[Rfam]
Rfam assigns this 192-nucleotide RNA from Polynucleobacter sp. VK25 to the family "carA ncRNA motif".
On this family, see Brewer et al., RNA Biol 2021: "Comprehensive discovery of novel structured noncoding RNAs in 26 bacterial genomes".
carA ncRNA motif was reported as a Strong Riboswitch Candidate CarA ncRNA motif was located upstream of carA gene which codes for the small subunit of carbamoyl phosphate synthase, which is an enzyme that catalyses the first committed step in pyrimidine and arginine biosynthesis. It is proposed as a possible cis-regulatory element.

RNA sequence: UUUCCAUCUAAAGCCCCAUUUGGCUGGGUAUCCAAGGGUUUACGAGCAAAAAUGGUAUGAUUACAGGGUUCGAAACUUAAUAAAUACCCUAGCGCUUAAAGACACUCACCUCCCGCAAAAACAUCCUCGGGUUGGUCUAUUUGAGGGUUUUGAGCGUCGGAUGGAGCAGGGACUGGAGAUGGUUUGUCACCC
Number, nucleotide and partner (000 for none) at each position: 001u000002u000003u000004c000005c000006a000007u000008c000009u028010a000011a000012a025013g024014c023015c022016c000017c000018a000019u000020u000021u000022g015023g014024c013025u012026g000027g000028g009029u000030a039031u038032c037033c000034a000035a000036g000037g032038g031039u030040u000041u000042a000043c000044g000045a000046g000047c000048a000049a000050a000051a000052a000053u066054g000055g064056u063057a062058u000059g000060a000061u000062u057063a056064c055065a000066g053067g000068g000069u000070u000071c000072g000073a000074a000075a000076c000077u000078u000079a000080a000081u000082a000083a000084a000085u000086a000087c171088c170089c169090u168091a000092g000093c000094g167095c166096u165097u164098a000099a000100a000101g158102a157103c156104a000105c154106u153107c152108a151109c000110c000111u000112c147113c146114c145115g000116c000117a000118a000119a142120a141121a140122c000123a000124u000125c135126c134127u000128c000129g000130g000131g000132u000133u000134g126135g125136u000137c000138u000139a000140u121141u120142u119143g000144a000145g114146g113147g112148u000149u000150u000151u108152g107153a106154g105155c000156g103157u102158c101159g000160g000161a000162u000163g000164g097165a096166g095167c094168a090169g089170g088171g087172a000173c000174u000175g000176g000177a000178g000179a000180u000181g000182g000183u000184u000185u000186g000187u000188c000189a000190c000191c000192c000